[Rfam]
RNA sequence: GUGAAGCCAUCCCAGACAGACAGGCACAACAGGAGGCAGCCAUGUUCGUCGAUACAGUGGUUCUCGCCGGAGUCGGCACCGUUCUUCUGAUGGUCGCGUUCUUCGGGGGUGUUGGUUACUUCAUCUGGAAGGAUGCUCACAAGCGCAAGCAGAGCUGAUCCUUCCGGUCAACUGGGCACGCAAGGCAAUUCGGGCGACUUCGGUCGCCCAUUUUUUUG
Numbered sequence: 001g002u003g004a005a006g007c008c009a010u011c012c013c014a015g016a017c018a019g020a021c022a023g024g025c026a027c028a029a030c031a032g033g034a035g036g037c038a039g040c041c042a043u044g045u046u047c048g049u050c051g052a053u054a055c056a057g058u059g060g061u062u063c064u065c066g067c068c069g070g071a072g073u074c075g076g077c078a079c080c081g082u083u084c085u086u087c088u089g090a091u092g093g094u095c096g097c098g099u100u101c102u103u104c105g106g107g108g109g110u111g112u113u114g115g116u117u118a119c120u121u122c123a124u125c126u127g128g129a130a131g132g133a134u135g136c137u138c139a140c141a142a143g144c145g146c147a148a149g150c151a152g153a154g155c156u157g158a159u160c161c162u163u164c165c166g167g168u169c170a171a172c173u174g175g176g177c178a179c180g181c182a183a184g185g186c187a188a189u190u191c192g193g194g195c196g197a198c199u200u201c202g203g204u205c206g207c208c209c210a211u212u213u214u215u216u217u218g
Stems, first nucleotide, its partner, number of pairs: 010108004057067003086093002176186002179184001192209007
Notes: Shown here is a 218-nucleotide sequence from Pseudomonas sp. THAF187a, a member of the family "PhrS". Gene Ontology term of the family: quorum sensing.